RNA sequence: GGUAGUAGGUCUACCGAAGCCGCUUUACAGGAGGAGGCUUCAAACCGCUCUACGGUGCUGUAUCCUAAGGGAUAUGGUGUUGAACGGUUAGAGAAAAGGUAUACACAAGUAUAUCAGGU
Numbered sequence: 001g002g003u004a005g006u007a008g009g010u011c012u013a014c015c016g017a018a019g020c021c022g023c024u025u026u027a028c029a030g031g032a033g034g035a036g037g038c039u040u041c042a043a044a045c046c047g048c049u050c051u052a053c054g055g056u057g058c059u060g061u062a063u064c065c066u067a068a069g070g071g072a073u074a075u076g077g078u079g080u081u082g083a084a085c086g087g088u089u090a091g092a093g094a095a096a097a098g099g100u101a102u103a104c105a106c107a108a109g110u111a112u113a114u115c116a117g118g119u
Base pairs, nucleotide, nucleotide: 001015002014003013004012005011016041017040018039019038020037021036023034024033025032026031046118048093049092050091051090052089053087054081055080057078058077059076061074062073063072064071098115099114100113101112102111103110
RNA: Group II catalytic intron D1-D4-2